[Rfam]
RNA sequence: CCCGGGUCAUUGGCCUGUAAUCCGAGAAAUCGGAGGGAUACGGGUUGGGCAUUAUGGAUGGGGAGAGGUUCUGUGAGCGGGGGCAGGGCCGGAGAUCACCGCCACCAUUGAAUGGCGCGCCCGACUCCAAGCCAAGAGUGGAGGUAGGCGCCCUCUCGGAGGGGAGUUUGGCGUCUGCCUCGUCGAAGAGGGGGGGAACGCGUGCAGGCCGGCGACGGAGCGACGAACACCUCCCGCUCUCGGCAGUGGAGGGACAACGCAGGCCUUCCGGCGGCCUCCGACAACCCUUCCCGCGCCUCUCCUCCACACCCCAGCCCCAUCCAC
Number, nucleotide and partner (000 for none) at each position: 001c037002c036003c035004g016005g015006g014007u013008c012009a000010u000011u000012g008013g007014c006015c005016u004017g000018u000019a000020a000021u034022c033023c032024g000025a000026g000027a000028a000029a000030u000031c000032g023033g022034a021035g003036g002037g001038a000039u000040a000041c000042g322043g321044g320045u319046u000047g317048g316049g315050c314051a000052u000053u313054a000055u000056g310057g309058a000059u000060g304061g303062g302063g301064a300065g299066a298067g297068g296069u000070u000071c000072u000073g000074u000075g294076a000077g292078c000079g290080g289081g000082g000083g000084c000085a288086g287087g286088g285089c000090c280091g279092g278093a277094g276095a000096u000097c000098a000099c000100c000101g000102c000103c000104a000105c000106c000107a000108u000109u000110g000111a000112a000113u000114g265115g264116c263117g260118c259119g258120c000121c253122c252123g000124a000125c251126u250127c249128c248129a247130a000131g244132c243133c242134a000135a240136g239137a238138g237139u236140g000141g181142a180143g179144g178145u177146a176147g175148g174149c173150g172151c171152c170153c166154u165155c164156u163157c162158g000159g000160a000161g000162g157163g156164g155165a154166g153167u000168u000169u000170g152171g151172c150173g149174u148175c147176u146177g145178c144179c143180u142181c141182g000183u189184c188185g000186a000187a000188g184189a183190g235191g234192g233193g232194g231195g230196g000197a000198a000199c000200g000201c225202g224203u223204g000205c000206a000207g000208g000209c218210c217211g216212g000213c000214g000215a000216c211217g210218g209219a000220g000221c000222g000223a203224c202225g201226a000227a000228c000229a000230c195231c194232u193233c192234c191235c190236g139237c138238u137239c136240u135241c000242g133243g132244c131245a000246g000247u129248g128249g127250a126251g125252g122253g121254a000255c000256a000257a000258c119259g118260c117261a000262g000263g116264c115265c114266u000267u000268c000269c000270g000271g000272c000273g000274g000275c000276c094277u093278c092279c091280g090281a000282c000283a000284a000285c088286c087287c086288u085289u080290c079291c000292c077293g000294c075295g000296c068297c067298u066299c065300u064301c063302c062303u061304c060305c000306a000307c000308a000309c057310c056311c000312c000313a053314g050315c049316c048317c047318c000319a045320u044321c043322c042323a000324c000

Rfam assigns this 324-nucleotide RNA sequence from Ceratopteris richardii to the family "Metazoan signal recognition particle RNA". It is annotated as a non-coding RNA gene. The literature on the family includes a 2001 paper in J Mol Biol by Batey et al., "Structural and energetic analysis of RNA recognition by a universally conserved protein from the signal recognition particle". It scores 77 bits against the family's covariance model. Clan: SRP clan. The signal recognition particle (SRP) is a universally conserved ribonucleoprotein.